[Rfam]
RNA sequence: AACAAACACUGUUGUAAUUCGCUCUGGAUAAGAGCGUCUGCUAAAUGAUGUAAA
Numbered sequence: 001a002a003c004a005a006a007c008a009c010u011g012u013u014g015u016a017a018u019u020c021g022c023u024c025u026g027g028a029u030a031a032g033a034g035c036g037u038c039u040g041c042u043a044a045a046u047g048a049u050g051u052a053a054a
Stems, first nucleotide, its partner, number of pairs: 013043001014041003020036006
Dot-bracket structure: ............((((...((((((.....))))))..))).)...........